[Rfam]
The family of this 142-nucleotide RNA sequence from Granulicatella sp. WM01 is "glmS glucosamine-6-phosphate activated ribozyme aptamer".
Rfam describes the family as follows. This entry contains a glucosamine-6-phosphate activated ribozyme that is found in the mRNA for GlmS. GlmS is an enzyme that uses fructose-6-phosphate and glutamine to generate glucosamine-6-phosphate. The ribozyme catalyses self cleavage of the glmS mRNA that is thought to regulate GlmS activity.
The base pairs follow the family's consensus structure, which is taken from published work.
It scores 87 bits against the family's covariance model.

RNA sequence: AGAAAUAAAAAAGCGCCAGGCCAUAUAUAUGGUGACGAGGAAUGAGUUUAUCGAAAUAUUCGGCGGAUGACUCAAGGCUUAGUGAAGUCUACAGAAUACAACAAAAAAACGUCAGUUAACAAAUAUGUAUUCCCUCACUUAG
Numbered sequence: 001a002g003a004a005a006u007a008a009a010a011a012a013g014c015g016c017c018a019g020g021c022c023a024u025a026u027a028u029a030u031g032g033u034g035a036c037g038a039g040g041a042a043u044g045a046g047u048u049u050a051u052c053g054a055a056a057u058a059u060u061c062g063g064c065g066g067a068u069g070a071c072u073c074a075a076g077g078c079u080u081a082g083u084g085a086a087g088u089c090u091a092c093a094g095a096a097u098a099c100a101a102c103a104a105a106a107a108a109a110c111g112u113c114a115g116u117u118a119a120c121a122a123a124u125a126u127g128u129a130u131u132c133c134c135u136c137a138c139u140u141a142g
Base pairs, nucleotide, nucleotide: 020033021032022031023030024029043074044073045072046071047070051063052062053061054060075090076089077088078087079086094132095131096130097129098128099127100126108117109116110115
Dot-bracket structure: ...................(((((....))))).........(((((...((((.....))))......)))))(((((......)))))...(((((((.......(((....)))........)))))))..........